Shown here is a 68-nucleotide RNA from Modestobacter italicus, a member of the family "ASdes TB sRNA". The match comes from Rfam's covariance-model search (75 bits). The source organism's lineage runs through Bacteria, Actinomycetota, Actinomycetes, Geodermatophilaceae and Modestobacter. The base pairs follow the family's consensus structure, which is taken from published work.
RNA sequence: AGCUCGACCGGGUCGACCCCGCGCGUGACGACCAGGUAGUCACGCAGCGCGACGCCGUGUCGGUUCUC
Numbered sequence: 001a002g003c004u005c006g007a008c009c010g011g012g013u014c015g016a017c018c019c020c021g022c023g024c025g026u027g028a029c030g031a032c033c034a035g036g037u038a039g040u041c042a043c044g045c046a047g048c049g050c051g052a053c054g055c056c057g058u059g060u061c062g063g064u065u066c067u068c
Stems, first nucleotide, its partner, number of pairs: 004063003008059001012029002016026002035056003040052002043049002
Dot-bracket structure: ...(((.(...((..((.......)).)).....(((..((.((...)).)).)))..).))).....